[Rfam]
RNA sequence: GGGAGUAUGGCGGAAUCGGUAGACGCACCAGACUUAAAAUCUGUUAAGGAUUAACCUUGUGAGAGUUCAAGUCUCUCUACUCCUA
Numbered sequence: 001g002g003g004a005g006u007a008u009g010g011c012g013g014a015a016u017c018g019g020u021a022g023a024c025g026c027a028c029c030a031g032a033c034u035u036a037a038a039a040u041c042u043g044u045u046a047a048g049g050a051u052u053a054a055c056c057u058u059g060u061g062a063g064a065g066u067u068c069a070a071g072u073c074u075c076u077c078u079a080c081u082c083c084u085a
Stems, first nucleotide, its partner, number of pairs: 001084007010026003029043004061077005

Rfam assigns this 85-nucleotide RNA from Synechococcus phage S-BM1 to the family "tRNA". The literature on the family includes a 1993 paper in Trends Biochem Sci by Hou, "The tertiary structure of tRNA and the development of the genetic code". It scores 57 bits against the family's covariance model. By type it is a transfer RNA. Taxonomically the source falls in Nerrivikvirus (Viruses, Heunggongvirae, Caudoviricetes, Pantevenvirales).